[Rfam]
RNA sequence: CUGUCUUGAUGAACAUUCAACGCUGUCGGUGAGUUUGGUAUAUGUAGGCAAACCAUCGAUCGUUGACUGUACAUCACGGCAAG
Numbered sequence: 001c002u003g004u005c006u007u008g009a010u011g012a013a014c015a016u017u018c019a020a021c022g023c024u025g026u027c028g029g030u031g032a033g034u035u036u037g038g039u040a041u042a043u044g045u046a047g048g049c050a051a052a053c054c055a056u057c058g059a060u061c062g063u064u065g066a067c068u069g070u071a072c073a074u075c076a077c078g079g080c081a082a083g
Stems, first nucleotide, its partner, number of pairs: 001083002004079002007076002014069002017066006025060007033053004

The family of this 83-nucleotide RNA from Eleutherodactylus coqui is "mir-181 microRNA precursor family".
The source organism's lineage runs through Eukaryota, Tetrapoda, Batrachia, Eleutherodactylus and Eleutherodactylus.
The match comes from Rfam's covariance-model search (76 bits).
Rfam 15.1 lists 3,490 matches to the family in 650 species.
Gene Ontology terms of the family: RISC complex and miRNA-mediated post-transcriptional gene silencing.